[Rfam]
RNA sequence: UUUACAUAAAAGCAACCAUGCUGAAAGGCAUGAGGCGCAAAGCUAGAGGGGCUAACACCGUGAGGACAUGCCAGCCAGCUGCUGAA
Dot-bracket structure: ...........((...((((((....))))))....))..((((...(((((.....((....))....)))..))))))......
Numbered sequence: 001u002u003u004a005c006a007u008a009a010a011a012g013c014a015a016c017c018a019u020g021c022u023g024a025a026a027g028g029c030a031u032g033a034g035g036c037g038c039a040a041a042g043c044u045a046g047a048g049g050g051g052c053u054a055a056c057a058c059c060g061u062g063a064g065g066a067c068a069u070g071c072c073a074g075c076c077a078g079c080u081g082c083u084g085a086a
Stems, first nucleotide, its partner, number of pairs: 012038002017032006041080004048076002050072003058065002
c-di-GMP-I riboswitch aptamer: an 86-nucleotide RNA sequence from Metabacillus lacus. Rfam describes the family as follows. GEMM was predicted in a large-scale screen for bacterial structured RNA regulatory elements. It scores 55 bits against the family's covariance model. The literature on the family includes a 2007 paper in Nucleic Acids Res by Weinberg et al., "Identification of 22 candidate structured RNAs in bacteria using the CMfinder comparative genomics pipeline".